Shown here is a 128-nucleotide RNA sequence from Coregonus sp. 'balchen', a member of the family "Small nucleolar RNA ACA64".
The family has 30 seed sequences and 9,537 matches in Rfam 15.1.
By type it is an H/ACA-box small nucleolar RNA.
The base pairs follow the family's consensus structure, which was predicted with WAR.
The match comes from Rfam's covariance-model search (65 bits).
RNA sequence: CCAGUCUGAAAAUCACCUUGGAUAUAUCAGUUGUCUAGGGAGAGAGAACUAGGCCUACAGUACUGUGGCACGUUAAGCUUAUUGCCUGCUCUGUAUAGCAGUGUGAUUAAACCCAUGUGCCCACAAGC
Number, nucleotide and partner (000 for none) at each position: 001c000002c000003a000004g000005u052006c000007u000008g049009a000010a000011a000012a000013u043014c042015a000016c040017c000018u000019u000020g000021g035022a034023u033024a032025u000026a000027u000028c000029a000030g000031u000032u024033g023034u022035c021036u000037a000038g000039g000040g016041a000042g014043a013044g000045a000046g000047a000048a000049c008050u000051a000052g005053g000054c000055c000056u000057a000058c000059a000060g000061u000062a000063c000064u000065g000066u000067g121068g000069c119070a118071c117072g116073u115074u000075a000076a000077g000078c000079u109080u000081a107082u106083u105084g000085c000086c000087u100088g099089c098090u000091c000092u000093g000094u000095a000096u000097a000098g089099c088100a087101g000102u000103g000104u000105g083106a082107u081108u000109a079110a000111a000112c000113c000114c000115a073116u072117g071118u070119g069120c000121c067122c000123a000124c000125a000126a000127g000128c000